[Rfam]
RNA sequence: CCGUUCUUGCCGGGGUGCCAACCUGAGUUUUCAGAUGUUUCUGAUCAUAGGAAUUGAGGUUGGCUGAGAGUAACCCGUUGAACCUGACCCAGUUCAUACUGGCGUAGGGAGCAGACUCUCGGUAGAU
Numbered sequence: 001c002c003g004u005u006c007u008u009g010c011c012g013g014g015g016u017g018c019c020a021a022c023c024u025g026a027g028u029u030u031u032c033a034g035a036u037g038u039u040u041c042u043g044a045u046c047a048u049a050g051g052a053a054u055u056g057a058g059g060u061u062g063g064c065u066g067a068g069a070g071u072a073a074c075c076c077g078u079u080g081a082a083c084c085u086g087a088c089c090c091a092g093u094u095c096a097u098a099c100u101g102g103c104g105u106a107g108g109g110a111g112c113a114g115a116c117u118c119u120c121g122g123u124a125g126a127u
Stems, first nucleotide, its partner, number of pairs: 007114004011077004017064008083108004089102004

Rfam assigns this 127-nucleotide RNA sequence from Reinekea marinisedimentorum to the family "TPP riboswitch aptamer (THI element)". About the family: Vitamin B(1) in its active form thiamin pyrophosphate (TPP) is an essential coenzyme that is synthesised by coupling of pyrimidine and thiazole moieties in bacteria. NCBI's taxonomy places the organism under Bacteria, Pseudomonadota, Gammaproteobacteria, Saccharospirillaceae, Reinekea.